[Rfam]
RNA sequence: CGCCGGCCCUCCAAAGGUCGGCACCGAAGAGGCUUGUUUAUCAUUGCCAGGCGUGCGGACGGGAAUCCCCGAUCCAAUCCAAGGCAGCAUCGUCGGGUGAAGAGCCCAUCGCCGCUUCCUCGUGUCUCCAUCGCACGAAUGCGGGAUGUGUCCU
Dot-bracket structure: .(((((((.......)))))))........(((............)))......(.(.....................(.......).......(((.(...............).)))..............).)..................
Record summary:
Shown here is a 154-nucleotide RNA from Microvirga thermotolerans, a member of the family "speF leader". Its family is annotated with regulation of gene expression in the Gene Ontology. The family's consensus secondary structure was predicted with RNAalifold. From the family's description: This family is a putative regulatory RNA structure that is found upstream of the speF gene encoding ornithine decarboxylase in Agrobacterium tumefaciens and other alpha-proteobacteria. On this family, see Corbino et al., Genome Biol 2005: "Evidence for a second class of S-adenosylmethionine riboswitches and other regulatory RNA motifs in alpha-proteobacteria".